uup RNA: a 49-nucleotide RNA sequence from Bittarella massiliensis. The base pairs follow the family's consensus structure, which is taken from published work. It scores 37 bits against the family's covariance model. NCBI's taxonomy places the organism under Bacteria, Bacillati, Bacillota, Eubacteriales, Bittarella (ex Durand et al. 2017).

RNA sequence: GGAAAAGCCGCUCCGUGCAGAUGGAAAGCGAUGAGACGCUGUUCGGAGC
Numbered sequence: 001g002g003a004a005a006a007g008c009c010g011c012u013c014c015g016u017g018c019a020g021a022u023g024g025a026a027a028g029c030g031a032u033g034a035g036a037c038g039c040u041g042u043u044c045g046g047a048g049c
Stems, first nucleotide, its partner, number of pairs: 011048005017042003